[Rfam]
RNA: Small nucleolar RNA SNORD103/SNORD85
RNA sequence: UCUGGCAAUGACGACACGCUUGCCCUCACUGAGAACGUUGUUCGCUAAUGAGAGCUGUGUUAUGUACUCAGCAGAGCUGAGCCAGA
Numbered sequence: 001u002c003u004g005g006c007a008a009u010g011a012c013g014a015c016a017c018g019c020u021u022g023c024c025c026u027c028a029c030u031g032a033g034a035a036c037g038u039u040g041u042u043c044g045c046u047a048a049u050g051a052g053a054g055c056u057g058u059g060u061u062a063u064g065u066a067c068u069c070a071g072c073a074g075a076g077c078u079g080a081g082c083c084a085g086a
Stems, first nucleotide, its partner, number of pairs: 001086006